small nucleolar RNA snoR134: a 144-nucleotide RNA sequence from Arabis alpina. Rfam 15.1 lists 792 matches to the family in 228 species. On this family, see Chen and Wu, Nucleic Acids Res 2009: "Mining small RNA sequencing data: a new approach to identify small nucleolar RNAs in Arabidopsis". Gene Ontology terms of the family: nucleolus and RNA processing.

[Rfam]
RNA sequence: ACGCAGGAGCCUCCCGGGCUAACCUGAUUAAUAUAAAUCAUGAAGAAUUAAGCCCUAAGCUCCUGCUAGAUUUAUUGACAUUCGUGUUGAAGUUUUGUCUCGUUUUAUCACCGGCUUAAUUGUGUCAAAGCAGUGUCUAGAUUU
Numbered sequence: 001a002c003g004c005a006g007g008a009g010c011c012u013c014c015c016g017g018g019c020u021a022a023c024c025u026g027a028u029u030a031a032u033a034u035a036a037a038u039c040a041u042g043a044a045g046a047a048u049u050a051a052g053c054c055c056u057a058a059g060c061u062c063c064u065g066c067u068a069g070a071u072u073u074a075u076u077g078a079c080a081u082u083c084g085u086g087u088u089g090a091a092g093u094u095u096u097g098u099c100u101c102g103u104u105u106u107a108u109c110a111c112c113g114g115c116u117u118a119a120u121u122g123u124g125u126c127a128a129a130g131c132a133g134u135g136u137c138u139a140g141a142u143u144u
Base pairs, nucleotide, nucleotide: 003066004065005064006063007062008061009060010059016055017054018053019052020051021049022048024045025044077137078136079135080134081133082132085127086126088124089123091121092120093119097115098114099113